[Rfam]
glmS glucosamine-6-phosphate activated ribozyme aptamer: a 267-nucleotide sequence from Thermanaeromonas sp. C210. It is annotated as a riboswitch. It scores 101 bits against the family's covariance model. Rfam's curators write: This entry contains a glucosamine-6-phosphate activated ribozyme that is found in the mRNA for GlmS. GlmS is an enzyme that uses fructose-6-phosphate and glutamine to generate glucosamine-6-phosphate. Rfam links the family to the GO terms catalytic activity and regulation of gene expression. The source organism's lineage runs through Bacteria, Bacillati, Bacillota, Neomoorellaceae and Thermanaeromonas.

RNA sequence: GAGGGUAAACAAGCGCCAGGACCACCAGCGGAUUAGUCCGUCCUCCCGAUCCGGGGCGAGCAACGGCUAUACGUUGUUUCCGGGACGCGGCCUGCCGAGCUACUUUUAGUCAGGCAAAGCCCUUUUGGGAGGCUGCGGGGAUCUGGUGGUUGACGAGGAAGGGGUUUAUCGAGGUUUUCGGCGGGUGCCCCUCGGUUGGUUACGACCGUCAAAGGCGCUACAAAACCCGGGAGCAAUCCCGGGGACAAAGGGCGCCGGGUAACACCU
Numbered sequence: 001g002a003g004g005g006u007a008a009a010c011a012a013g014c015g016c017c018a019g020g021a022c023c024a025c026c027a028g029c030g031g032a033u034u035a036g037u038c039c040g041u042c043c044u045c046c047c048g049a050u051c052c053g054g055g056g057c058g059a060g061c062a063a064c065g066g067c068u069a070u071a072c073g074u075u076g077u078u079u080c081c082g083g084g085a086c087g088c089g090g091c092c093u094g095c096c097g098a099g100c101u102a103c104u105u106u107u108a109g110u111c112a113g114g115c116a117a118a119g120c121c122c123u124u125u126u127g128g129g130a131g132g133c134u135g136c137g138g139g140g141a142u143c144u145g146g147u148g149g150u151u152g153a154c155g156a157g158g159a160a161g162g163g164g165u166u167u168a169u170c171g172a173g174g175u176u177u178u179c180g181g182c183g184g185g186u187g188c189c190c191c192u193c194g195g196u197u198g199g200u201u202a203c204g205a206c207c208g209u210c211a212a213a214g215g216c217g218c219u220a221c222a223a224a225a226c227c228c229g230g231g232a233g234c235a236a237u238c239c240c241g242g243g244g245a246c247a248a249a250g251g252g253c254g255c256c257g258g259g260u261a262a263c264a265c266c267u
Stems, first nucleotide, its partner, number of pairs: 020151008160192005169181004193208006214256006226243007